[Rfam]
RNA sequence: CUGAUGAACGGCGAUGGAGUUCGCCAUAACCGCCGCAAGGCUGAUGACUCCUACCAGUGG
Numbered sequence: 001c002u003g004a005u006g007a008a009c010g011g012c013g014a015u016g017g018a019g020u021u022c023g024c025c026a027u028a029a030c031c032g033c034c035g036c037a038a039g040g041c042u043g044a045u046g047a048c049u050c051c052u053a054c055c056a057g058u059g060g
Base pairs, nucleotide, nucleotide: 010025011024012023013022016051017050018049019048020047021046032041033040034039

The family of this 60-nucleotide sequence from Paenibacillus stellifer is "Fluoride riboswitch aptamer (crcB RNA motif)". The match comes from Rfam's covariance-model search (63 bits). Pairs were carried over by alignment from the consensus structure, which is taken from published work. The organism belongs to Paenibacillus, within Bacteria. Its family is annotated with positive regulation of gene expression and response to fluoride in the Gene Ontology.